[Rfam]
RNA sequence: UUCAGACAAAGGCAAACUCGGCCGAAAGGCGAGGACGCAAAACCACCGGUCUAAGUGGCAUCGCCAUACGACAGCGGGGUUGCCGUA
Number, nucleotide and partner (000 for none) at each position: 001u000002u000003c000004a000005g000006a000007c000008a000009a000010a000011g000012g038013c037014a000015a000016a000017c033018u032019c031020g030021g000022c029023c028024g000025a000026a000027a000028g023029g022030c020031g019032a018033g017034g000035a000036c000037g013038c012039a000040a000041a081042a080043c079044c078045a000046c077047c076048g075049g072050u071051c070052u000053a000054a000055g000056u066057g065058g064059c063060a000061u000062c000063g059064c058065c057066a056067u000068a000069c000070g051071a050072c049073a000074g000075c048076g047077g046078g044079g043080u042081u041082g000083c000084c000085g000086u000087a000
A member of the RNA family "c-di-GMP-I riboswitch aptamer" from Novimethylophilus kurashikiensis, 87 nucleotides long. The base pairs follow the family's consensus structure, which is taken from published work. Its family is annotated with cyclic-di-GMP binding in the Gene Ontology. The family is grouped with related families in Rfam's "c-di-GMP_I riboswitch clan". Lineage of the source: Bacteria > Pseudomonadati > Pseudomonadota > Methylophilaceae > Novimethylophilus.